[Rfam]
RNA sequence: CGAGGUCUUCAGGGCGGGGUGGAAUUCCCCACCGGCGGUAGGCGGCGAAAGCCGCGAGCCCGCGAGCGCCCCGCGGUCCGCCCGGGCCACGGGGGUCAGCAGACUCAGUCAAAUGCUGAGGCCGACGGUCACAGUCCGGAUGAAAGAAGAUUCGC
Number, nucleotide and partner (000 for none) at each position: 001c000002g000003a000004g152005g151006u150007c149008u148009u147010c146011a000012g000013g000014g000015c000016g000017g029018g028019g027020u000021g000022g000023a000024a000025u000026u000027c019028c018029c017030c000031a135032c134033c124034g123035g063036c062037g061038g060039u000040a000041g000042g000043c000044g000045g000046c000047g000048a000049a000050a000051g000052c000053c000054g000055c000056g000057a000058g122059c121060c038061c037062g036063c035064g000065a000066g100067c099068g000069c000070c000071c000072c000073g000074c000075g000076g000077u000078c000079c000080g000081c000082c000083c000084g000085g000086g000087c000088c000089a000090c000091g000092g000093g000094g000095g000096u000097c000098a000099g067100c066101a000102g000103a000104c120105u119106c118107a117108g116109u000110c000111a000112a000113a000114u000115g000116c108117u107118g106119a105120g104121g059122c058123c034124g033125a000126c138127g137128g136129u000130c000131a000132c000133a000134g032135u031136c128137c127138g126139g000140a000141u000142g000143a000144a000145a000146g010147a009148a008149g007150a006151u005152u004153c000154g000155c000
RNA: FMN riboswitch aptamer (RFN element)